[Rfam]
Nucleotides: 096
Stems, first nucleotide, its partner, number of pairs: 006017004044077002051071001054067004
Number, partner (000 for none) and nucleotide at each position: 001000c002000a003000c004000c005000g006017u007016g008015c009014c010000a011000c012000u013000u014009g015008g016007c017006a018000a019000a020000a021000c022000a023000u024000u025000c026000a027000a028000a029000a030000a031000u032000u033000c034000a035000a036000u037000a038000g039000g040000c041000u042000g043000u044077u045076u046000u047000g048000g049000u050000a051071a052000a053000c054067u055066g056065c057064c058000c059000a060000a061000a062000c063000a064057g065056g066055c067054a068000g069000g070000u071051u072000g073000a074000a075000g076045a077044a078000u079000c080000g081000g082000c083000u084000u085000u086000a087000g088000u089000g090000c091000a092000u093000a094000c095000a096000a